RNA sequence: CGUGUUGGCUGAAUCAGAGAUUGGCUGACACAAACUUAAACUCAACUCUCAGGAGAGAAUUAUGUCUCUGAAUGCAGAAACUAAAGCAGCAAUCGUUGCUGAAUACGCACGUGCCGAA
Numbered sequence: 001c002g003u004g005u006u007g008g009c010u011g012a013a014u015c016a017g018a019g020a021u022u023g024g025c026u027g028a029c030a031c032a033a034a035c036u037u038a039a040a041c042u043c044a045a046c047u048c049u050c051a052g053g054a055g056a057g058a059a060u061u062a063u064g065u066c067u068c069u070g071a072a073u074g075c076a077g078a079a080a081c082u083a084a085a086g087c088a089g090c091a092a093u094c095g096u097u098g099c100u101g102a103a104u105a106c107g108c109a110c111g112u113g114c115c116g117a118a
Stems, first nucleotide, its partner, number of pairs: 007026006049072001052069004

A member of the RNA family "Ribosomal S15 leader" from Vibrio viridaestus, 118 nucleotides long. A search with the family's covariance model found it, with a score of 95 bits. The family's RNA type in Rfam is cis-regulatory leader. Rfam's curators write: The E. coli Ribosomal S15 gene 5' UTR can form two alternative structures. The literature on the family includes a 1996 paper in Biochimie by Benard et al., "Pseudoknot and translational control in the expression of the S15 ribosomal protein".